[Rfam]
RNA sequence: CGUCAAGAAAAGUAAAGGGCUUUUAGGAGCAGCUGUGUUUUAUUAACCCAGUCAUAAUGCCCCUACAAAUCCUUAUUGCUCUUGCA
Numbered sequence: 001c002g003u004c005a006a007g008a009a010a011a012g013u014a015a016a017g018g019g020c021u022u023u024u025a026g027g028a029g030c031a032g033c034u035g036u037g038u039u040u041u042a043u044u045a046a047c048c049c050a051g052u053c054a055u056a057a058u059g060c061c062c063c064u065a066c067a068a069a070u071c072c073u074u075a076u077u078g079c080u081c082u083u084g085c086a
Stems, first nucleotide, its partner, number of pairs: 015074005021068002025064003029060003034056004
Record summary: Shown here is an 86-nucleotide RNA from Salmo trutta, a member of the family "mir-365 microRNA precursor family". A reference for the family is Xie et al. (2005), "Systematic discovery of regulatory motifs in human promoters and 3' UTRs by comparison of several mammals", Nature. Its family is annotated with miRNA-mediated post-transcriptional gene silencing and RISC complex in the Gene Ontology. NCBI's taxonomy places the organism under Eukaryota, Osteoglossocephalai, Salmoniformes, Salmonidae, Salmo.